[Rfam]
RNA sequence: AUACCUUUCUCGGCCUUUUGGCUAAGAUCAAGUGUAGCAUCUGUUCUUAUCAGUUUAAUAUCUGAUACGUGGACCAUUGGCUCACACGAUUAUUAAAUUCGUUUUUUCAUGGGGAAAAGCCCGUUUAGGUAGCUUGCUAUCUAGGUUUUCAUGCAUUUGCCACGUGUUGCACUAUUGCAUGGGCUUGCCGCACUCCAC
Numbered sequence: 001a002u003a004c005c006u007u008u009c010u011c012g013g014c015c016u017u018u019u020g021g022c023u024a025a026g027a028u029c030a031a032g033u034g035u036a037g038c039a040u041c042u043g044u045u046c047u048u049a050u051c052a053g054u055u056u057a058a059u060a061u062c063u064g065a066u067a068c069g070u071g072g073a074c075c076a077u078u079g080g081c082u083c084a085c086a087c088g089a090u091u092a093u094u095a096a097a098u099u100c101g102u103u104u105u106u107u108c109a110u111g112g113g114g115a116a117a118a119g120c121c122c123g124u125u126u127a128g129g130u131a132g133c134u135u136g137c138u139a140u141c142u143a144g145g146u147u148u149u150c151a152u153g154c155a156u157u158u159g160c161c162a163c164g165u166g167u168u169g170c171a172c173u174a175u176u177g178c179a180u181g182g183g184c185u186u187g188c189c190g191c192a193c194u195c196c197a198c
Stems, first nucleotide, its partner, number of pairs: 008027003012023004048067006069085004074080002114150005120144001129140004153191002157187001160182003164178002
RNA: U2 spliceosomal RNA